[Rfam]
RNA sequence: CAUGUGGUUAAUGAUGUACACUUUUUUCCCCGUCUUAUCGACCAUGGUGAGAAAGCUUAAAACUAAGCCAGUUGUAUCUGAAACCACAAA
Numbered sequence: 001c002a003u004g005u006g007g008u009u010a011a012u013g014a015u016g017u018a019c020a021c022u023u024u025u026u027u028c029c030c031c032g033u034c035u036u037a038u039c040g041a042c043c044a045u046g047g048u049g050a051g052a053a054a055g056c057u058u059a060a061a062a063c064u065a066a067g068c069c070a071g072u073u074g075u076a077u078c079u080g081a082a083a084c085c086a087c088a089a090a
Stems, first nucleotide, its partner, number of pairs: 003088007